[Rfam]
RNA sequence: UGCGCCGGGGUAAGUCUUGUACGACCAGCUCCCUUCUAAUCCCCCAGGACAGGAAUGUAGCAAGGGCCGAAGGUUGUAGCGGUGCGAUAUGAGUAGCUUACCCCUCU
Dot-bracket structure: .......((((((((.(((((((((........................................................)).)).)))))...))))))))....

The record is a 107-nucleotide sequence from Taishania pollutisoli, which matches "Bacteroidales small SRP" in Rfam. A reference for the family is Ryan et al. (2020), "A high-resolution transcriptome map identifies small RNA regulation of metabolism in the gut microbe Bacteroides thetaiotaomicron", Nat Commun. The family's RNA type in Rfam is non-coding RNA gene. Pairs were carried over by alignment from the consensus structure, which is taken from published work. Its family is annotated with signal recognition particle, plasma membrane targeting and SRP-dependent cotranslational protein targeting to membrane, signal sequence recognition in the Gene Ontology.